[Rfam]
RNA: mir-9230 microRNA precursor family
RNA sequence: CCGACUGCUCUGAACUCCAGUUCCAGGUGGGAAUCUGGGAAUCCAGACUCAUUGGGGGAGAAACUGGACUGUCUGGCAGCGGGCGAA
Dot-bracket structure: .(..((((((((.(((((((((((..(((((..(((((....))))))))))....)))...))))))..)).))).)))))..)..